[Rfam]
RNA sequence: UAUCAGGCAGGCAAUGGACUCUGCCUGACUUUCAUACCCGAAAGUCGAACCGCCUUACGGGCUGAUGAUUCCUACCCCGCA
Numbered sequence: 001u002a003u004c005a006g007g008c009a010g011g012c013a014a015u016g017g018a019c020u021c022u023g024c025c026u027g028a029c030u031u032u033c034a035u036a037c038c039c040g041a042a043a044g045u046c047g048a049a050c051c052g053c054c055u056u057a058c059g060g061g062c063u064g065a066u067g068a069u070u071c072c073u074a075c076c077c078c079g080c081a
Stems, first nucleotide, its partner, number of pairs: 010025004016072003020068002052062003
The record is an 81-nucleotide RNA from Acetobacter vaccinii, which matches "Fluoride riboswitch aptamer (crcB RNA motif)" in Rfam. Lineage of the source: Bacteria > Pseudomonadota > Acetobacterales > Acetobacteraceae > Acetobacter. It scores 42 bits against the family's covariance model. A reference for the family is Baker et al. (2012), "Widespread genetic switches and toxicity resistance proteins for fluoride", Science.